[Rfam]
The family of this 117-nucleotide RNA from Ketogulonicigenium robustum is "ALIL pseudoknot". Gene Ontology term of the family: positive regulation of translational frameshifting. It is annotated as a cis-regulatory element.
Nucleotides: 117
Base pairs, nucleotide, nucleotide: 016032017031018030019029020028079116080115081114082113089112090111092109093108095106096105097104098103
Number, partner (000 for none) and nucleotide at each position: 001000c002000g003000c004000g005000u006000a007000u008000u009000u010000u011000g012000c013000g014000c015000u016032g017031g018030c019029g020028g021000a022000g023000c024000u025000c026000g027000a028020c029019c030018g031017c032016c033000g034000g035000u036000c037000g038000a039000a040000g041000u042000g043000a044000u045000g046000g047000u048000g049000u050000c051000g052000u053000u054000c055000a056000u057000c058000g059000a060000u061000g062000c063000g064000c065000a066000u067000c068000g069000a070000g071000g072000g073000a074000u075000u076000c077000a078000u079116g080115g081114g082113g083000u084000c085000g086000a087000g088000c089112u090111g091000a092109u093108c094000u095106g096105c097104a098103g099000c100000g101000u102000g103098c104097u105096g106095c107000c108093g109092a110000u111090c112089g113082c114081c115080c116079c117000u